[Rfam]
RNA sequence: CUUGGCCUUCGGGUUGCGCUUGAGGAGGUCGAUGCCGAUGGCUUGCAGCAGGUGCGUCUUGCCCAGCCCGGUGCCCCCAUA
Number, nucleotide and partner (000 for none) at each position: 001c000002u000003u000004g043005g042006c041007c040008u000009u038010c037011g036012g035013g000014u000015u000016g000017c031018g030019c000020u000021u028022g000023a000024g000025g000026a000027g000028g021029u000030c018031g017032a000033u000034g000035c012036c011037g010038a009039u000040g007041g006042c005043u004044u000045g000046c000047a000048g000049c000050a000051g078052g077053u000054g075055c000056g074057u073058c000059u000060u000061g072062c071063c070064c000065a000066g000067c000068c000069c000070g063071g062072u061073g057074c056075c054076c000077c052078c051079a000080u000081a000

The family of this 81-nucleotide sequence from Usitatibacter rugosus is "antisense RNA of dnaA mRNA". The base pairs follow the family's consensus structure, which was predicted with RNAfold. A reference for the family is Dadzie et al. (2013), "Identification and characterization of a cis-encoded antisense RNA associated with the replication process of Salmonella enterica serovar Typhi", PLoS One.